The family of this 246-nucleotide sequence from Glycine soja is "RNase MRP".

[Rfam]
RNA sequence: GGAUCAUGAGGCGAUGUGAGUGGGUCUACGCAAUUUGCUAGACUCAGGAAAGUCCCCGGGCCACGACUGCAGAGAUGCAGACUCGGAAACGGGUAACUUCGAGCUGGGACUUGUCUCGUUUCCUUUGAAGCGAGGGGCUGAGACACGUGUGGAGCCUUUGCGAGUCCCGCCGAAGACAUUGGCCAAUGUCACAGUCAUUCACAUGGUCUUCCUGACUAACAGAACGGGGCUUACGCCCUCGUGAUC
Number, nucleotide and partner (000 for none) at each position: 001g000002g246003a245004u244005c243006a242007u241008g240009a239010g238011g237012c000013g000014a204015u203016g202017u201018g200019a199020g000021u046022g045023g044024g043025u042026c041027u040028a000029c000030g000031c000032a000033a000034u000035u000036u000037g000038c000039u000040a027041g026042a025043c024044u023045c022046a021047g000048g000049a000050a232051a231052g230053u000054c229055c228056c227057c226058g000059g000060g000061c000062c000063a000064c000065g000066a000067c000068u079069g078070c077071a076072g000073a000074g000075a000076u071077g070078c069079a068080g000081a094082c093083u092084c091085g090086g000087a000088a000089a000090c085091g084092g083093g082094u081095a000096a000097c175098u174099u173100c000101g000102a000103g170104c169105u000106g168107g167108g166109a165110c000111u000112u000113g000114u000115c000116u163117c162118g161119u160120u000121u000122c000123c000124u000125u000126u000127g000128a157129a000130g155131c154132g000133a000134g000135g000136g000137g000138c000139u000140g000141a000142g000143a150144c149145a000146c000147g000148u000149g144150u143151g000152g000153a000154g131155c130156c000157u128158u000159u000160g119161c118162g117163a116164g000165u109166c108167c107168c106169g104170c103171c000172g000173a099174a098175g097176a000177c000178a000179u000180u000181g000182g000183c000184c000185a000186a000187u000188g000189u000190c000191a000192c000193a000194g000195u000196c000197a000198u000199u019200c018201a017202c016203a015204u014205g000206g216207u215208c214209u000210u000211c000212c000213u000214g208215a207216c206217u000218a000219a000220c000221a000222g000223a000224a000225c000226g057227g056228g055229g054230c052231u051232u050233a000234c000235g000236c000237c011238c010239u009240c008241g007242u006243g005244a004245u003246c002

The base pairs follow the family's consensus structure, which is taken from published work.
A search with the family's covariance model found it, with a score of 83 bits.
Rfam classes the family as a ribozyme.